[Rfam]
RNA: Lysine riboswitch aptamer
RNA sequence: ACCAGAGAUAGAGGCGCGUUGCAUCAAGAGUACCCGGUGCCAAUGCCUUGCAGGGCAGGGCCGGGGAAAGGGGUGGACGCCGAAGGCGGUCUUCGCUGCAAAGGGGGCCGAACUGGGCGGGUGAACUAAGAGUUACCCGACUGUCGCAAAUGGUAAAUUUGCGGAGGGCUAUCCUUGAU
Numbered sequence: 001a002c003c004a005g006a007g008a009u010a011g012a013g014g015c016g017c018g019u020u021g022c023a024u025c026a027a028g029a030g031u032a033c034c035c036g037g038u039g040c041c042a043a044u045g046c047c048u049u050g051c052a053g054g055g056c057a058g059g060g061c062c063g064g065g066g067a068a069a070g071g072g073g074u075g076g077a078c079g080c081c082g083a084a085g086g087c088g089g090u091c092u093u094c095g096c097u098g099c100a101a102a103g104g105g106g107g108c109c110g111a112a113c114u115g116g117g118c119g120g121g122u123g124a125a126c127u128a129a130g131a132g133u134u135a136c137c138c139g140a141c142u143g144u145c146g147c148a149a150a151u152g153g154u155a156a157a158u159u160u161g162c163g164g165a166g167g168g169c170u171a172u173c174c175u176u177g178a179u
Stems, first nucleotide, its partner, number of pairs: 007173005016080005022075004033065006040058001084114002087110008115142002118139007144164007